[Rfam]
RNA sequence: CACACGUUCCUUAGAUCCGUCUCUGGGGAGCGUCAGUGCUCUUCUUCUGCUGCUCUCUGUGUGAGAGGAUCAGGGUCGACCGCAGCUCCCGCCAGCUUUACUGCUGUACCGUCAGAGGCGCUUGAGUCAUUGGCGUGUGAGAUCAGUCCACCUGCUUACCCAGAAUUCUCUCUGCCCUGAACCUUCACAGGACUACAGCAGGGCAGAGCUGCUGGGGAGCGGACACA
Number, nucleotide and partner (000 for none) at each position: 001c000002a138003c137004a136005c135006g134007u133008u132009c000010c126011u125012u124013a123014g122015a000016u000017c000018c120019g119020u118021c117022u116023c115024u114025g113026g090027g089028g088029a087030g086031c085032g000033u000034c082035a000036g080037u079038g000039c075040u074041c073042u000043u072044c000045u000046u069047c068048u000049g000050c065051u000052g000053c063054u000055c061056u000057c000058u000059g000060u000061g055062u000063g053064a000065g050066a000067g000068g047069a046070u000071c000072a043073g041074g040075g039076u000077c000078g000079a037080c036081c000082g034083c000084a000085g031086c030087u029088c028089c027090c026091g107092c106093c000094a105095g104096c103097u000098u000099u000100a000101c000102u000103g096104c095105u094106g092107u091108a000109c000110c000111g000112u000113c025114a024115g023116a022117g021118g020119c019120g018121c000122u014123u013124g012125a011126g010127u000128c000129a000130u000131u000132g008133g007134c006135g005136u004137g003138u002139g000140a000141g000142a000143u000144c000145a000146g000147u000148c000149c000150a000151c000152c222153u221154g220155c219156u218157u000158a000159c215160c000161c000162a213163g212164a000165a210166u000167u000168c000169u000170c000171u000172c206173u205174g204175c203176c202177c201178u200179g199180a000181a000182c000183c198184u197185u000186c000187a194188c000189a000190g000191g000192a000193c000194u187195a000196c000197a184198g183199c179200a178201g177202g176203g175204c174205a173206g172207a000208g000209c000210u165211g000212c163213u162214g000215g159216g000217g000218a156219g155220c154221g153222g152223a000224c000225a000226c000227a000
RNA: Small nucleolar RNA SNORA53